[Rfam]
RNA sequence: CUCUGAUUCUGGGAAAGAUUCAGGGCAGGAGGAG
Numbered sequence: 001c002u003c004u005g006a007u008u009c010u011g012g013g014a015a016a017g018a019u020u021c022a023g024g025g026c027a028g029g030a031g032g033a034g
Base pairs, nucleotide, nucleotide: 001025002024003023004022005021008018009017010016
The family of this 34-nucleotide RNA from Cervus hanglu is "L31-Firmicutes ribosomal protein leader". Clan: Ribosomal Protein L31 Leader clan. A reference for the family is Eckert and Weinberg (2020), "Discovery of 20 novel ribosomal leader candidates in bacteria and archaea", BMC Microbiol. The family's consensus secondary structure is taken from published work.